[Rfam]
RNA: mir-221 microRNA precursor family
RNA sequence: CCCCUUCGUAGCUCAGUAGUCAGUGUAGGUCCUGUCUGUCUGUCAGCAGCUACAUCUGGCUACUGGGUCUCUGACGGAUUCC
Numbered sequence: 001c002c003c004c005u006u007c008g009u010a011g012c013u014c015a016g017u018a019g020u021c022a023g024u025g026u027a028g029g030u031c032c033u034g035u036c037u038g039u040c041u042g043u044c045a046g047c048a049g050c051u052a053c054a055u056c057u058g059g060c061u062a063c064u065g066g067g068u069c070u071c072u073g074a075c076g077g078a079u080u081c082c
Stems, first nucleotide, its partner, number of pairs: 013066006020059003023055006032049004